[Rfam]
RNA sequence: AUUCUUUAAUUGAGAAUGUCGCUUGGUUUGUGGUUCCAAGCUGGUCUAAAUAGUUGCCGAGUUCGCAGCCUUUAAGUGCUCGGAUGAGUGGCGCUGUUUAUGAUGAACGUCCCACGUGCU
Numbered sequence: 001a002u003u004c005u006u007u008a009a010u011u012g013a014g015a016a017u018g019u020c021g022c023u024u025g026g027u028u029u030g031u032g033g034u035u036c037c038a039a040g041c042u043g044g045u046c047u048a049a050a051u052a053g054u055u056g057c058c059g060a061g062u063u064c065g066c067a068g069c070c071u072u073u074a075a076g077u078g079c080u081c082g083g084a085u086g087a088g089u090g091g092c093g094c095u096g097u098u099u100a101u102g103a104u105g106a107a108c109g110u111c112c113c114a115c116g117u118g119c120u
Stems, first nucleotide, its partner, number of pairs: 001017006021041006030115004044104003047100003056092004061085002067080003
Dot-bracket structure: ((((((.....))))))...((((((...[[[[..))))))..((((((......((((.((....(((........)))...))...)))).....))).))).......]]]].....